[Rfam]
RNA sequence: CUGUCAUAGCACGGGGCCAUAGCAGAAGCAUUCAAAUUGUGACCCCUGUCAGGUAAUGCCUGUGAAUUCUGCU
Numbered sequence: 001c002u003g004u005c006a007u008a009g010c011a012c013g014g015g016g017c018c019a020u021a022g023c024a025g026a027a028g029c030a031u032u033c034a035a036a037u038u039g040u041g042a043c044c045c046c047u048g049u050c051a052g053g054u055a056a057u058g059c060c061u062g063u064g065a066a067u068u069c070u071g072c073u
Stems, first nucleotide, its partner, number of pairs: 013046004018041001021073007028040003050062005